Shown here is an 86-nucleotide RNA from Phaeodactylum tricornutum, a member of the family "Selenocysteine transfer RNA".

RNA sequence: GUGUGCAUGAUCUUGGCUGGUGCUGAGAACAGGCUUCAAACCUGUUGGGGCUUGACGGCCCAGUGGUUCGAUUCCACCUUGCGCAC
Numbered sequence: 001g002u003g004u005g006c007a008u009g010a011u012c013u014u015g016g017c018u019g020g021u022g023c024u025g026a027g028a029a030c031a032g033g034c035u036u037c038a039a040a041c042c043u044g045u046u047g048g049g050g051c052u053u054g055a056c057g058g059c060c061c062a063g064u065g066g067u068u069c070g071a072u073u074c075c076a077c078c079u080u081g082c083g084c085a086c
Stems, first nucleotide, its partner, number of pairs: 001086007009078001012027006028046006048061005063077004
The source organism's lineage runs through Eukaryota, Bacillariophycidae, Surirellales, Neidiaceae and Phaeodactylum tricornutum. The family's consensus secondary structure is taken from published work. Rfam links the family to the GO term triplet codon-amino acid adaptor activity.